[Rfam]
This 69-nucleotide RNA sequence belongs to the Rfam family "tRNA". The family's RNA type in Rfam is transfer RNA. The family's consensus secondary structure is taken from published work. Its family is annotated with triplet codon-amino acid adaptor activity in the Gene Ontology. Rfam's curators put it in the seed alignment.
RNA sequence: GUUAAUGUAGCUUUAAAAUUAAAGCAAGGCACUGAAAAUGCCUAGAUGAGUGCUCCAACUCCAUAAACA
Numbered sequence: 001g002u003u004a005a006u007g008u009a010g011c012u013u014u015a016a017a018a019u020u021a022a023a024g025c026a027a028g029g030c031a032c033u034g035a036a037a038a039u040g041c042c043u044a045g046a047u048g049a050g051u052g053c054u055c056c057a058a059c060u061c062c063a064u065a066a067a068c069a
Base pairs, nucleotide, nucleotide: 001068002067003066005064006063007062010025011024012023013022027043028042029041030040031039048061049060050059051058